[Rfam]
Notes
This 128-nucleotide RNA from Crotophaga sulcirostris belongs to the Rfam family "U11 spliceosomal RNA". It is annotated as a spliceosomal small nuclear RNA. A search with the family's covariance model found it, with a score of 105 bits. The base pairs follow the family's consensus structure, which is taken from published work.
RNA sequence: AAAAAGGGCUUCUGCCGUGCGUGGCACGGGGGGGCUUCGGCCGCCCCCGCGGAAUCGACAUCAAGAGAUUUCGGAAGCACAAUUUUUGAAGAGAGGGCGCGCCGGUAACCGCUCGUUCCGGCGGCCUG
Numbered sequence: 001a002a003a004a005a006g007g008g009c010u011u012c013u014g015c016c017g018u019g020c021g022u023g024g025c026a027c028g029g030g031g032g033g034g035c036u037u038c039g040g041c042c043g044c045c046c047c048c049g050c051g052g053a054a055u056c057g058a059c060a061u062c063a064a065g066a067g068a069u070u071u072c073g074g075a076a077g078c079a080c081a082a083u084u085u086u087u088g089a090a091g092a093g094a095g096g097g098c099g100c101g102c103c104g105g106u107a108a109c110c111g112c113u114c115g116u117u118c119c120g121g122c123g124g125c126c127u128g
Stems, first nucleotide, its partner, number of pairs: 008078005013026005027049006034041002050073007096126003101122005107117003